Shown here is an 81-nucleotide RNA sequence from Clostridium puniceum, a member of the family "pemK RNA".
[Rfam]
Nucleotides: 081
Stems, first nucleotide, its partner, number of pairs: 012078001013043006044064002048060002065077003
Number, partner (000 for none) and nucleotide at each position: 001000a002000u003000a004000a005000u006000g007000a008000u009000a010000c011000u012078c013043c014042u015041g016040c017039c018038u019000u020000g021000a022000a023000c024000g025000u026000c027000u028000g029000c030000a031000c032000g033000g034000c035000a036000u037000u038018g039017g040016g041015c042014g043013g044064u045063a046000c047000a048060c049059c050000c051000a052000u053000a054000a055000g056000u057000a058000u059049g060048g061000g062000a063045u064044a065077a066076g067075g068000u069000g070000a071000a072000a073000g074000u075067c076066c077065u078012g079000u080000g081000g